A member of the RNA family "U8 small nucleolar RNA" from Sorex araneus, 135 nucleotides long. Lineage of the source: Eukaryota > Bilateria > Craniata > Teleostomi > Sorex. The literature on the family includes a 2001 paper in Gene by Peculis et al., "The U8 snoRNA gene family: identification and characterization of distinct, functional U8 genes in Xenopus". By type it is a C/D-box small nucleolar RNA. Rfam 15.1 lists 1,597 matches to the family in 457 species.
[Rfam]
RNA sequence: UUGUCAAGUAGGAUAAUCCCUACCUGUUUCUCUUUUCAGAGGGCAGAUAGAACAUGAUGAUUGGAGCUUGCAUGAUUUGUGAUUAACAUCUCUGUGUGAUUAGGGCUCAAAACACCCUAAUUGCUCUUUUCUGAU
Numbered sequence: 001u002u003g004u005c006a007a008g009u010a011g012g013a014u015a016a017u018c019c020c021u022a023c024c025u026g027u028u029u030c031u032c033u034u035u036u037c038a039g040a041g042g043g044c045a046g047a048u049a050g051a052a053c054a055u056g057a058u059g060a061u062u063g064g065a066g067c068u069u070g071c072a073u074g075a076u077u078u079g080u081g082a083u084u085a086a087c088a089u090c091u092c093u094g095u096g097u098g099a100u101u102a103g104g105g106c107u108c109a110a111a112a113c114a115c116c117c118u119a120a121u122u123g124c125u126c127u128u129u130u131c132u133g134a135u
Base pairs, nucleotide, nucleotide: 024046025045026044028043029042030041031040032039033038074092075091078088079087080085096124097123098122099121100120101119102118103117104116